[Rfam]
RNA sequence: ACUAUGAUCGCCUAGAUCCUCUACUCGUUUCACGUUCGGACGGCCGAACUAAUGGCGA
Numbered sequence: 001a002c003u004a005u006g007a008u009c010g011c012c013u014a015g016a017u018c019c020u021c022u023a024c025u026c027g028u029u030u031c032a033c034g035u036u037c038g039g040a041c042g043g044c045c046g047a048a049c050u051a052a053u054g055g056c057g058a
Stems, first nucleotide, its partner, number of pairs: 006018004025058004034049006
RNA: MDR-NUDIX RNA